RNA: Small nucleolar RNA SNORD66
Organism: Monodelphis domestica
RNA sequence: CUUCACUGAUGAGAUCCUGUUUGUGCCGUCGUGUCUGGGCCACUGAAGCCUUGUGAUGGAGUUGAGGAUCUGAGGAG
Numbered sequence: 001c002u003u004c005a006c007u008g009a010u011g012a013g014a015u016c017c018u019g020u021u022u023g024u025g026c027c028g029u030c031g032u033g034u035c036u037g038g039g040c041c042a043c044u045g046a047a048g049c050c051u052u053g054u055g056a057u058g059g060a061g062u063u064g065a066g067g068a069u070c071u072g073a074g075g076a077g
Stems, first nucleotide, its partner, number of pairs: 001077004
Dot-bracket structure: ((((.....................................................................))))